[Rfam]
RNA sequence: UUAGGCCUUUAACAGAAGCAAGGCGGUUCUCCCAGUGGUCUUCCUGGACCAUGAGGAACUUGCCUGUUGCUUUGCUUAGGACUGA
Numbered sequence: 001u002u003a004g005g006c007c008u009u010u011a012a013c014a015g016a017a018g019c020a021a022g023g024c025g026g027u028u029c030u031c032c033c034a035g036u037g038g039u040c041u042u043c044c045u046g047g048a049c050c051a052u053g054a055g056g057a058a059c060u061u062g063c064c065u066g067u068u069g070c071u072u073u074g075c076u077u078a079g080g081a082c083u084g085a
Stems, first nucleotide, its partner, number of pairs: 001085003006080003011076001013074004018070004022064003026059005033053002037049001
Dot-bracket structure: (((..(((..(.((((.(((((((.(((((..((..(...........)..)).)))))..)))..)))))))).).)))..)))
The record is an 85-nucleotide RNA sequence from Propithecus coquereli, which matches "mir-298 microRNA precursor family" in Rfam. The base pairs follow the family's consensus structure, which was predicted with RNAalifold. A reference for the family is Houbaviy et al. (2003), "Embryonic stem cell-specific MicroRNAs", Dev Cell.